[Rfam]
RNA sequence: AGCGCGAAAACGCACCACGGCAGGAGCGGGGGAACCAGGUAAGCCGCCCUGGCACCGGUCAUCGACCGGUCGCCGGGCUAGGGGUGAAGCCGUGCUCAGCACGGCCGGGCAACUCCAGCCCGAAUCCGACAGCUCACCUCGCAGGCGUAGGAGAGGAACG
Number, nucleotide and partner (000 for none) at each position: 001a000002g000003c147004g146005c145006g000007a000008a000009a000010a000011c024012g000013c000014a000015c000016c000017a000018c000019g000020g000021c000022a000023g000024g011025a000026g142027c141028g140029g139030g138031g137032g000033a000034a000035c000036c081037a000038g000039g000040u000041a000042a000043g000044c000045c000046g000047c000048c000049c000050u000051g000052g000053c000054a000055c000056c000057g000058g000059u000060c000061a000062u000063c000064g000065a000066c000067c000068g000069g000070u000071c000072g000073c000074c000075g000076g000077g000078c000079u000080a000081g036082g127083g126084g125085u000086g000087a000088a000089g000090c104091c103092g102093u101094g000095c000096u000097c000098a000099g000100c000101a093102c092103g091104g090105c000106c000107g121108g120109g119110c118111a000112a000113c000114u000115c000116c000117a000118g110119c109120c108121c107122g000123a000124a000125u084126c083127c082128g000129a000130c000131a000132g000133c000134u000135c000136a000137c031138c030139u029140c028141g027142c026143a000144g000145g005146c004147g003148u000149a000150g000151g000152a000153g000154a000155g000156g000157a000158a000159c000160g000